[Rfam]
Nucleotides: 055
Base pairs, nucleotide, nucleotide: 030052031051032050033049034048036046037045038044039043
Number, partner (000 for none) and nucleotide at each position: 001000a002000a003000g004000u005000u006000u007000u008000a009000c010000a011000g012000a013000u014000c015000u016000u017000c018000u019000a020000a021000a022000a023000u024000u025000u026000a027000u028000c029000a030052g031051g032050u033049u034048u035000c036046c037045u038044g039043g040000u041000u042000a043039c044038c045037a046036g047000a048034a049033a050032g051031c052030c053000c054000c055000c
This 55-nucleotide RNA from Aotus nancymaae belongs to the Rfam family "U7 small nuclear RNA". A reference for the family is Spycher et al. (1994), "3' end processing of mouse histone pre-mRNA: evidence for additional base-pairing between U7 snRNA and pre-mRNA", Nucleic Acids Res.